[Rfam]
RNA sequence: UGGCUAUGAAGCAAUAGACUGUGUCGGUAUCGCAGCCCAUUGUGGAGCCCGACCUUGGGUUAUGCGAUAACCUCUAACCGAAUAGGCUCUUUGGAGCUGAAAGAUACGCUUUUA
Numbered sequence: 001u002g003g004c005u006a007u008g009a010a011g012c013a014a015u016a017g018a019c020u021g022u023g024u025c026g027g028u029a030u031c032g033c034a035g036c037c038c039a040u041u042g043u044g045g046a047g048c049c050c051g052a053c054c055u056u057g058g059g060u061u062a063u064g065c066g067a068u069a070a071c072c073u074c075u076a077a078c079c080g081a082a083u084a085g086g087c088u089c090u091u092u093g094g095a096g097c098u099g100a101a102a103g104a105u106a107c108g109c110u111u112u113u114a
Stems, first nucleotide, its partner, number of pairs: 002049003011043005017037001019035004024081004064109003085098004

About this RNA
A member of the RNA family "drum RNA", 114 nucleotides long. The base pairs follow the family's consensus structure, which is taken from published work. It is annotated as a small RNA. Firmicutes, Bacteroidetes (1 example), Proteobacteria (2 examples), Spirochaetes (2 examples).